[Rfam]
RNA sequence: CACUUUUAUCCCGAACCUCAGCAGAGGUAGCAACCUGCAAAACAAGCAAGGUGCUAAAACGAUAAGCCAAUUUUUGGAAAAAAUGUUGAACUA
Number, nucleotide and partner (000 for none) at each position: 001c000002a000003c000004u000005u000006u065007u064008a063009u062010c061011c000012c000013g000014a000015a028016c027017c026018u025019c024020a000021g000022c000023a000024g019025a018026g017027g016028u015029a055030g054031c053032a000033a000034c051035c050036u049037g047038c046039a000040a000041a000042a000043c000044a086045a000046g038047c037048a000049a036050g035051g034052u000053g031054c030055u029056a000057a000058a000059a000060c000061g010062a009063u008064a007065a006066g000067c077068c076069a075070a074071u000072u000073u000074u070075u069076g068077g067078a000079a000080a000081a000082a000083a000084u000085g000086u044087u000088g000089a000090a000091c000092u000093a000
Rfam assigns this 93-nucleotide RNA sequence from Soonwooa buanensis to the family "SAM-I/IV (S-adenosyl methionine) riboswitch aptamer". NCBI's taxonomy places the organism under Bacteria, Pseudomonadati, Flavobacteriales, Weeksellaceae, Soonwooa. Its Rfam clan is "SAM clan". For this family Rfam cites "The aptamer core of SAM-IV riboswitches mimics the ligand-binding site of SAM-I riboswitches" (Weinberg et al., RNA, 2008).